[Rfam]
Source information:
Shown here is an 87-nucleotide RNA sequence from Hibiscus trionum, a member of the family "Small nucleolar RNA Z122". It scores 43 bits against the family's covariance model. Rfam links the family to the GO terms nucleolus and RNA processing. The organism belongs to Hibiscus, within Eukaryota. On this family, see Chen et al., Nucleic Acids Res 2003: "The high diversity of snoRNAs in plants: identification and comparative study of 120 snoRNA genes from Oryza sativa". Rfam 15.1 lists 822 matches to the family in 247 species.

RNA sequence: AUUGUGAGAUGAUGACAGCUUAAUUGCUAGAUAGUAUCUGAGCAAAGCUUUGACGAAUUAUCUUUUUCUCGUCAGUCUGAUCCCAAA
Number, nucleotide and partner (000 for none) at each position: 001a000002u086003u085004g084005u000006g082007a081008g000009a000010u000011g000012a000013u000014g000015a000016c000017a000018g000019c000020u000021u000022a000023a000024u000025u000026g000027c000028u000029a000030g000031a000032u000033a000034g000035u000036a000037u000038c000039u000040g000041a000042g000043c000044a000045a000046a000047g000048c000049u000050u000051u000052g000053a000054c000055g000056a000057a000058u000059u000060a000061u000062c000063u000064u000065u000066u000067u000068c000069u000070c000071g000072u000073c000074a000075g000076u000077c000078u000079g000080a000081u007082c006083c000084c004085a003086a002087a000